[Rfam]
RNA: pan motif
RNA sequence: UGGGUAGUAUCUAUUAGAACUACACCUCAUUGAAGUGGGAAUAAUUAAUUCAUGAAGCAUUCUACUUUAGUUAAUAGUAAUAGUAGAGUCUAAACACAACUGAUUGAAAUGAAAUUCUGCCUUGAUCCAAAAAGGACUAGGACAGAGGG
Numbered sequence: 001u002g003g004g005u006a007g008u009a010u011c012u013a014u015u016a017g018a019a020c021u022a023c024a025c026c027u028c029a030u031u032g033a034a035g036u037g038g039g040a041a042u043a044a045u046u047a048a049u050u051c052a053u054g055a056a057g058c059a060u061u062c063u064a065c066u067u068u069a070g071u072u073a074a075u076a077g078u079a080a081u082a083g084u085a086g087a088g089u090c091u092a093a094a095c096a097c098a099a100c101u102g103a104u105u106g107a108a109a110u111g112a113a114a115u116u117c118u119g120c121c122u123u124g125a126u127c128c129a130a131a132a133a134g135g136a137c138u139a140g141g142a143c144a145g146a147g148g149g
Stems, first nucleotide, its partner, number of pairs: 002026002004023005010018002117145003120141003124137001126136003
Dot-bracket structure: .(((((((.((.....))))))).))..........................................................................................((((((.(.(((.....)))).))).)))....